[Rfam]
The record is an 86-nucleotide RNA from Pongo pygmaeus, which matches "mir-515 microRNA precursor family" in Rfam. The sequence is in the family's curated seed alignment. Taxonomically the source falls in Pongo (Eukaryota, Craniata, Sarcopterygii, Hominidae). On this family, see Bentwich et al., Nat Genet 2005: "Identification of hundreds of conserved and nonconserved human microRNAs".

RNA sequence: CUCAUGCUGUGACUCUACAAAGGAAAGCGCUUUCUGUUGUCAGAAUGAAGAGAAAGCGCUUCCCUUUUGAGGGUUACGGUUUGAGA
Numbered sequence: 001c002u003c004a005u006g007c008u009g010u011g012a013c014u015c016u017a018c019a020a021a022g023g024a025a026a027g028c029g030c031u032u033u034c035u036g037u038u039g040u041c042a043g044a045a046u047g048a049a050g051a052g053a054a055a056g057c058g059c060u061u062c063c064c065u066u067u068u069g070a071g072g073g074u075u076a077c078g079g080u081u082u083g084a085g086a
Stems, first nucleotide, its partner, number of pairs: 001085004006080008015071002019067005025061010037051002